[Rfam]
RNA sequence: AUGCACAAUACAGUGUUUAUGCGGUUACCCACCGCGUAGAGCAUAGAACGCUCAAACAACAAAGGAGAAAAACAAAUG
Numbered sequence: 001a002u003g004c005a006c007a008a009u010a011c012a013g014u015g016u017u018u019a020u021g022c023g024g025u026u027a028c029c030c031a032c033c034g035c036g037u038a039g040a041g042c043a044u045a046g047a048a049c050g051c052u053c054a055a056a057c058a059a060c061a062a063a064g065g066a067g068a069a070a071a072a073c074a075a076a077u078g
Stems, first nucleotide, its partner, number of pairs: 003016004018038007039053004
RNA: freshwater-2 RNA